[Rfam]
RNA sequence: UAAGGAUUACAUAACUGGCGGAUUCGUGGGUCACCACAAGGGAAUGUAAUCUGUUAUCGCCGACCGCCUGGGCAUCUUGU
Numbered sequence: 001u002a003a004g005g006a007u008u009a010c011a012u013a014a015c016u017g018g019c020g021g022a023u024u025c026g027u028g029g030g031u032c033a034c035c036a037c038a039a040g041g042g043a044a045u046g047u048a049a050u051c052u053g054u055u056a057u058c059g060c061c062g063a064c065c066g067c068c069u070g071g072g073c074a075u076c077u078u079g080u
Stems, first nucleotide, its partner, number of pairs: 004052009015041002017068005026037004059073003